[Rfam]
IscS-1 ICR thermometer: a 179-nucleotide RNA from Photorhabdus asymbiotica.
RNA sequence: UCAAGAAGUGUUAGAUGUUGCUGAUCGCCAAGAUAACGAUAAACGCCGUACACCUAAUGGCAGAGCACAAGAAACAAUUAAUGUCAAUCUGCGCGCAUAAGCAGAACUUGUGACUAAUUGAAGUAUUAAGAAGUAGGGAGCAUGUGAGCAAUGAAAUUACCAAUUUAUUUAGACUACUC
Numbered sequence: 001u002c003a004a005g006a007a008g009u010g011u012u013a014g015a016u017g018u019u020g021c022u023g024a025u026c027g028c029c030a031a032g033a034u035a036a037c038g039a040u041a042a043a044c045g046c047c048g049u050a051c052a053c054c055u056a057a058u059g060g061c062a063g064a065g066c067a068c069a070a071g072a073a074a075c076a077a078u079u080a081a082u083g084u085c086a087a088u089c090u091g092c093g094c095g096c097a098u099a100a101g102c103a104g105a106a107c108u109u110g111u112g113a114c115u116a117a118u119u120g121a122a123g124u125a126u127u128a129a130g131a132a133g134u135a136g137g138g139a140g141c142a143u144g145u146g147a148g149c150a151a152u153g154a155a156a157u158u159a160c161c162a163a164u165u166u167a168u169u170u171a172g173a174c175u176a177c178u179c
Stems, first nucleotide, its partner, number of pairs: 001129001003127002006124001014049001017046002020044001022042001025039003051063001054060002065114001066112006078100003082095003133160004141153003
Imprinting control region from upstream of iscS-1 (cysteine desulfurase). By type it is an RNA thermoregulator. The organism belongs to Photorhabdus, within Bacteria.